The record is a 124-nucleotide RNA sequence from Ensifer sp. M14, which matches "Alphaproteobacterial ar14" in Rfam. For this family Rfam cites "A survey of sRNA families in alpha-proteobacteria" (del Val et al., RNA Biol, 2012). About the family: Smr14C2 was renamed NfeR1 (Nodule Formation Efficiency RNA) highly expressed in salt stress and during the symbiotic interaction on legume roots. Its family is annotated with biological process involved in symbiotic interaction in the Gene Ontology. The family has 118 seed sequences and 784 matches in Rfam 15.1.
RNA sequence: GUGUCUGCAGGCGCUUUCUCCUCCUCCCAACGAGCGCCUGCCGGAAUGGCAACACUCCUCCUCCCAGUUGCCAUUCAAUCCCUUUAAGAGCCUGCCGCACCUCCUCCCGCGGCAGGCUUUUUCU
Numbered sequence: 001g002u003g004u005c006u007g008c009a010g011g012c013g014c015u016u017u018c019u020c021c022u023c024c025u026c027c028c029a030a031c032g033a034g035c036g037c038c039u040g041c042c043g044g045a046a047u048g049g050c051a052a053c054a055c056u057c058c059u060c061c062u063c064c065c066a067g068u069u070g071c072c073a074u075u076c077a078a079u080c081c082c083u084u085u086a087a088g089a090g091c092c093u094g095c096c097g098c099a100c101c102u103c104c105u106c107c108c109g110c111g112g113c114a115g116g117c118u119u120u121u122u123c124u
Base pairs, nucleotide, nucleotide: 007041008040009039010038011037012036013035014034015033016032044076045075046074047073048072049071050070051069052068053067088119089118090117091116092115093114094113095112096111097110098109
Dot-bracket structure: ......((((((((((...............))))))))))..((((((((((.............))))))))))...........(((((((((((..........))))))))))).....